[Rfam]
Nucleotides: 127
Base pairs, nucleotide, nucleotide: 004124005123006122007121008120010118016028017027018026030107031106032097033096034048035047036046037045043095044094052072053071077093078092079091080090081089099110100109101108
Number, partner (000 for none) and nucleotide at each position: 001000u002000a003000c004124g005123u006122g007121c008120u009000c010118c011000g012000g013000g014000g015000u016028c017027g018026g019000u020000g021000a022000a023000a024000u025000u026018c027017c028016g029000a030107a031106c032097c033096g034048g035047c036046g037045g038000u039000g040000a041000u042000a043095g044094u045037c046036c047035g048034c049000g050000a051000c052072c053071c054000g055000a056000g057000g058000c059000c060000c061000c062000u063000a064000g065000g066000g067000c068000u069000g070000a071053g072052g073000u074000u075000g076000a077093a078092u079091c080090g081089g082000u083000g084000a085000a086000a087000u088000u089081c090080c091079g092078a093077u094044a095043c096033c097032g098000a099110c100109a101108g102000u103000a104000a105000a106031g107030u108101c109100u110099g111000g112000a113000u114000g115000a116000g117000a118010g119000a120008a121007g122006c123005a124004c125000a126000u127000g

The family of this 127-nucleotide sequence from Leucobacter exalbidus is "FMN riboswitch aptamer (RFN element)". Rfam's curators write: The RFN element is a highly conserved domain that is found frequently in the 5'-untranslated regions of prokaryotic mRNAs that encode for flavin mononucleotide (FMN) biosynthesis and transport proteins. Pairs were carried over by alignment from the consensus structure, which is taken from published work. The source organism's lineage runs through Bacteria, Actinomycetota, Actinomycetes, Micrococcales and Leucobacter. For this family Rfam cites "Regulation of riboflavin biosynthesis and transport genes in bacteria by transcriptional and translational attenuation" (Vitreschak et al., Nucleic Acids Res, 2002).